[Rfam]
RNA sequence: UCGGCGUAUGCGGGGAGCUUGCUAAAGCAGGCUGAGAGGGGGCUGAUUUGCUCCGACCCGAUGAACCUGUUUGGGUAAUGCCAGCGAAGGGAGAGAAAUCAUGGCAAUG
Numbered sequence: 001u002c003g004g005c006g007u008a009u010g011c012g013g014g015g016a017g018c019u020u021g022c023u024a025a026a027g028c029a030g031g032c033u034g035a036g037a038g039g040g041g042g043c044u045g046a047u048u049u050g051c052u053c054c055g056a057c058c059c060g061a062u063g064a065a066c067c068u069g070u071u072u073g074g075g076u077a078a079u080g081c082c083a084g085c086g087a088a089g090g091g092a093g094a095g096a097a098a099u100c101a102u103g104g105c106a107a108u109g
Base pairs, nucleotide, nucleotide: 007096009094011060012059013058014057017032018031019030020029021028039054040053041052042051043050066090067089068088071084072083073082074081
Rfam assigns this 109-nucleotide sequence from Slackia piriformis to the family "TPP riboswitch aptamer (THI element)". Lineage of the source: Bacteria > Coriobacteriia > Eggerthellaceae > Slackia > Slackia piriformis. It scores 56 bits against the family's covariance model. The family's consensus secondary structure is taken from published work.